RNA sequence: CACAAAUGACCCGUGUUCGGCAGGAGCGGGGGACCCACCAGGCACGACCGCCUGUCCCGGUUCUCGCGACAGGCCAGGGGUGAAGCCGCGCACCGCACGGCCGGGCGACUCCAGCCCGAACCCGGCAGCUGACCUCGCAGGCGUCGGAGAGGAAUG
Numbered sequence: 001c002a003c004a005a006a007u008g009a010c011c012c013g014u015g016u017u018c019g020g021c022a023g024g025a026g027c028g029g030g031g032g033a034c035c036c037a038c039c040a041g042g043c044a045c046g047a048c049c050g051c052c053u054g055u056c057c058c059g060g061u062u063c064u065c066g067c068g069a070c071a072g073g074c075c076a077g078g079g080g081u082g083a084a085g086c087c088g089c090g091c092a093c094c095g096c097a098c099g100g101c102c103g104g105g106c107g108a109c110u111c112c113a114g115c116c117c118g119a120a121c122c123c124g125g126c127a128g129c130u131g132a133c134c135u136c137g138c139a140g141g142c143g144u145c146g147g148a149g150a151g152g153a154a155u156g
Stems, first nucleotide, its partner, number of pairs: 011141002016025003026138006036077001078123003086100003103117004